[Rfam]
RNA sequence: AGGGUUGGUCGAAAGACCGAGGCCCACCGUAGGCGGGGAAAGUUCCC
Numbered sequence: 001a002g003g004g005u006u007g008g009u010c011g012a013a014a015g016a017c018c019g020a021g022g023c024c025c026a027c028c029g030u031a032g033g034c035g036g037g038g039a040a041a042g043u044u045c046c047c
Stems, first nucleotide, its partner, number of pairs: 002025005007018004
Dot-bracket structure: .(((((((((....))))..)))))......................
RNA: DUF3800-XI RNA